[Rfam]
RNA sequence: GUUGUGAUUGGCUUUCAAAUUAACAUCUUUGAACCAUUGGAAAUAGU
Numbered sequence: 001g002u003u004g005u006g007a008u009u010g011g012c013u014u015u016c017a018a019a020u021u022a023a024c025a026u027c028u029u030u031g032a033a034c035c036a037u038u039g040g041a042a043a044u045a046g047u
Stems, first nucleotide, its partner, number of pairs: 014033006
Dot-bracket structure: .............((((((........))))))..............
The family of this 47-nucleotide sequence from Bacteroides nordii is "CRISPR RNA direct repeat element". It scores 58 bits against the family's covariance model.